[Rfam]
RNA sequence: AAUCAUAAAUAAAAAAUCACUCAUAUAUACUCAGAAAUAUGGUCUGAGAGUCUCUACCGGAGUACCGAAAAUACUCUGACUAUGAGUGAAAUUAUUAUAGAC
Numbered sequence: 001a002a003u004c005a006u007a008a009a010u011a012a013a014a015a016a017u018c019a020c021u022c023a024u025a026u027a028u029a030c031u032c033a034g035a036a037a038u039a040u041g042g043u044c045u046g047a048g049a050g051u052c053u054c055u056a057c058c059g060g061a062g063u064a065c066c067g068a069a070a071a072u073a074c075u076c077u078g079a080c081u082a083u084g085a086g087u088g089a090a091a092u093u094a095u096u097a098u099a100g101a102c
Stems, first nucleotide, its partner, number of pairs: 018088008030048006058078007
Dot-bracket structure: .................((((((((....((((((.......)))))).........(((((((.......)))))))..))))))))..............

This 102-nucleotide RNA from Paraclostridium benzoelyticum belongs to the Rfam family "Purine riboswitch aptamer".
A search with the family's covariance model found it, with a score of 95 bits.
Pairs were carried over by alignment from the consensus structure, which is taken from published work.